[Rfam]
Rfam assigns this 138-nucleotide RNA sequence from Falco tinnunculus to the family "Small nucleolar RNA SNORA46". Rfam 15.1 lists 582 matches to the family in 490 species. Gene Ontology terms of the family: nucleolus and RNA processing. ACA46 is a member of the H/ACA class of snoRNA that guide the sites of modification of uridines to pseudouridines. Pairs were carried over by alignment from the consensus structure, which was predicted with RNAfold. The organism belongs to Falco, within Eukaryota. A search with the family's covariance model found it, with a score of 100 bits.
RNA sequence: AGCACUAUUUUUAAACCUGUUGGUGGAAUUUCCUGACCACCAUGGGUUACGCUAUAGUGCAAAAGAAUCUCCUGGCUCUUUAUAGCACAGCUGACCUUGCUCUGUUCAGCUGAUGCUACUCUGAAACAAGGAACAGAA
Numbered sequence: 001a002g003c004a005c006u007a008u009u010u011u012u013a014a015a016c017c018u019g020u021u022g023g024u025g026g027a028a029u030u031u032c033c034u035g036a037c038c039a040c041c042a043u044g045g046g047u048u049a050c051g052c053u054a055u056a057g058u059g060c061a062a063a064a065g066a067a068u069c070u071c072c073u074g075g076c077u078c079u080u081u082a083u084a085g086c087a088c089a090g091c092u093g094a095c096c097u098u099g100c101u102c103u104g105u106u107c108a109g110c111u112g113a114u115g116c117u118a119c120u121c122u123g124a125a126a127c128a129a130g131g132a133a134c135a136g137a138a
Stems, first nucleotide, its partner, number of pairs: 002060007014048004021042006068133001070132004074127001077124002085116003088112004093107002